[Rfam]
RNA sequence: AACACCAAAAACCCUAUCUCCACCUCCACGCGGUGAACGCUGGGAGCUCUUUCUUAACGAAAAGCUGCAGAUGGAGAAGG
Numbered sequence: 001a002a003c004a005c006c007a008a009a010a011a012c013c014c015u016a017u018c019u020c021c022a023c024c025u026c027c028a029c030g031c032g033g034u035g036a037a038c039g040c041u042g043g044g045a046g047c048u049c050u051u052u053c054u055u056a057a058c059g060a061a062a063a064g065c066u067g068c069a070g071a072u073g074g075a076g077a078a079g080g
Stems, first nucleotide, its partner, number of pairs: 013080003017076001019074002022034003045066004050061002053059001

The record is an 80-nucleotide sequence from Hermetia illucens, which matches "drz-agam-1 ribozyme" in Rfam. Gene Ontology term of the family: catalytic activity.